[Rfam]
RNA: Small nucleolar RNA SNORD83
Organism: Xenopus laevis
RNA sequence: GCCACAUGAUGUAUUUUGAUAAGUCAGUAGCACUUUGUGUGAUGGUGACUUUUAUCUAUCACCCAAUAACUGAUGGCU
Number, nucleotide and partner (000 for none) at each position: 001g077002c076003c075004a074005c000006a000007u000008g000009a000010u000011g000012u000013a000014u000015u000016u000017u000018g000019a000020u000021a000022a000023g000024u000025c000026a000027g000028u000029a000030g040031c039032a038033c037034u000035u000036u000037g033038u032039g031040u030041g000042a000043u000044g000045g000046u000047g000048a000049c000050u000051u000052u000053u000054a000055u000056c000057u000058a000059u000060c000061a000062c000063c000064c000065a000066a000067u000068a000069a000070c000071u000072g000073a000074u004075g003076g002077c001078u000